About this RNA
This 157-nucleotide RNA sequence from a Lachnospiraceae bacterium belongs to the Rfam family "Clostridiales-1 RNA". The organism belongs to Lachnospiraceae, within Bacteria. The family has 194 seed sequences and 1,172 matches in Rfam 15.1. A search with the family's covariance model found it, with a score of 126 bits.
RNA sequence: UGAUGUCAGGGUCAAAAGGUCAAAAUCCGAUUGUGCUUGCACAAAGAGGAUUGAGACCUUGGGACCCGCAAAACACGAGCAAGUAGCGUUAUUACGCGGAAUGCGAGUGUUUUAGGAUUGCGGGAAUUGCGUAGCAAUGAAGCAAUCCCUGACAUCA
Numbered sequence: 001u002g003a004u005g006u007c008a009g010g011g012u013c014a015a016a017a018g019g020u021c022a023a024a025a026u027c028c029g030a031u032u033g034u035g036c037u038u039g040c041a042c043a044a045a046g047a048g049g050a051u052u053g054a055g056a057c058c059u060u061g062g063g064a065c066c067c068g069c070a071a072a073a074c075a076c077g078a079g080c081a082a083g084u085a086g087c088g089u090u091a092u093u094a095c096g097c098g099g100a101a102u103g104c105g106a107g108u109g110u111u112u113u114a115g116g117a118u119u120g121c122g123g124g125a126a127u128u129g130c131g132u133a134g135c136a137a138u139g140a141a142g143c144a145a146u147c148c149c150u151g152a153c154a155u156c157a
Stems, first nucleotide, its partner, number of pairs: 001157007010066004016060006024052005031044005070113001072111005079104003086097004115148007126138004